RNA: Small nucleolar RNA SNORD72
Organism: Sagittarius serpentarius
RNA sequence: UGCUAAUAAGAUGUUUCUCCUUAAAAAUGUCUGAACAUAUGAACUCCGUAGUGAUUUCAGUGCAUUACUGAGAUAAGCU
Number, nucleotide and partner (000 for none) at each position: 001u000002g078003c077004u076005a000006a074007u073008a000009a000010g000011a000012u000013g000014u000015u000016u000017c000018u000019c000020c000021u000022u000023a000024a000025a000026a000027a000028u000029g000030u000031c000032u000033g000034a000035a000036c000037a000038u000039a000040u000041g000042a000043a000044c000045u000046c000047c000048g000049u000050a000051g000052u000053g000054a000055u000056u000057u000058c000059a000060g000061u000062g000063c000064a000065u000066u000067a000068c000069u000070g000071a000072g000073a007074u006075a000076a004077g003078c002079u000